[Rfam]
RNA: Lysine riboswitch aptamer
RNA sequence: UAAAAUUUUAGAGGCAGCGAUGCAAAUUAGUACUUUGUUGAGACGGUAGUCUAUGAAGCAAACGAAAGGUAAUCAUCGCCGAAUGUAAAAUGUAGACAUACAUUUUAUAUGGGAUUAUAGGAAAAACCUAUAAUACUCCUACAAAAAGUAGAGGCGCUAAUCCAAUC
Numbered sequence: 001u002a003a004a005a006u007u008u009u010a011g012a013g014g015c016a017g018c019g020a021u022g023c024a025a026a027u028u029a030g031u032a033c034u035u036u037g038u039u040g041a042g043a044c045g046g047u048a049g050u051c052u053a054u055g056a057a058g059c060a061a062a063c064g065a066a067a068g069g070u071a072a073u074c075a076u077c078g079c080c081g082a083a084u085g086u087a088a089a090a091u092g093u094a095g096a097c098a099u100a101c102a103u104u105u106u107a108u109a110u111g112g113g114a115u116u117a118u119a120g121g122a123a124a125a126a127c128c129u130a131u132a133a134u135a136c137u138c139c140u141a142c143a144a145a146a147a148g149u150a151g152a153g154g155c156g157c158u159a160a161u162c163c164a165a166u167c
Base pairs, nucleotide, nucleotide: 008160009159010158011157017079018078019077020076021075022074025070034062035061036060037059038058039057083110084109085108086107087106088105089104090103091102092101093100094099111137112136114134115133116132117131118130119129120128121127139151140150141149142148